[Rfam]
The family of this 127-nucleotide RNA sequence from Caloramator mitchellensis is "Ribosomal protein L10 leader". The family's RNA type in Rfam is cis-regulatory leader. This family is a putative r-protein leader autoregulatory structure found in B. subtilis and other low-GC Gram-positive bacteria. It is located in the 5' untranslated regions of mRNAs encoding ribosomal proteins L10 and L12 (rplJ-rplL).
RNA sequence: AUUGAAUUAGGAAAUUAACCGUAGACAGUAGGUGCCAUAAGGCGUAACGGGAUACCAACCUACCGAGGUUUUAGAUAGGACUUUUAGGCCUCUCUAUGUCUACGGAGAGGCCUUUUAUAUUGUAAAA
Numbered sequence: 001a002u003u004g005a006a007u008u009a010g011g012a013a014a015u016u017a018a019c020c021g022u023a024g025a026c027a028g029u030a031g032g033u034g035c036c037a038u039a040a041g042g043c044g045u046a047a048c049g050g051g052a053u054a055c056c057a058a059c060c061u062a063c064c065g066a067g068g069u070u071u072u073a074g075a076u077a078g079g080a081c082u083u084u085u086a087g088g089c090c091u092c093u094c095u096a097u098g099u100c101u102a103c104g105g106a107g108a109g110g111c112c113u114u115u116u117a118u119a120u121u122g123u124a125a126a127a
Stems, first nucleotide, its partner, number of pairs: 028063006034043003087112009
A search with the family's covariance model found it, with a score of 82 bits.